[Rfam]
RNA sequence: UUAAAAAGGUAUCUGCCAACAUAGUUCACUUAAUGAGUGUUGUUGACACUUUGGGUCUGAGUGG
Numbered sequence: 001u002u003a004a005a006a007a008g009g010u011a012u013c014u015g016c017c018a019a020c021a022u023a024g025u026u027c028a029c030u031u032a033a034u035g036a037g038u039g040u041u042g043u044u045g046a047c048a049c050u051u052u053g054g055g056u057c058u059g060a061g062u063g064g
Stems, first nucleotide, its partner, number of pairs: 002063002008017003
Shown here is a 64-nucleotide RNA from Jaculus jaculus, a member of the family "Small nucleolar RNA SNORD56". Rfam classes the family as a C/D-box small nucleolar RNA. It scores 41 bits against the family's covariance model. On this family, see Galardi et al., Mol Cell Biol 2002: "Purified box C/D snoRNPs are able to reproduce site-specific 2'-O-methylation of target RNA in vitro". The base pairs follow the family's consensus structure, which was predicted with PFOLD. Taxonomically the source falls in Jaculus (Eukaryota, Deuterostomia, Gnathostomata, Eutheria).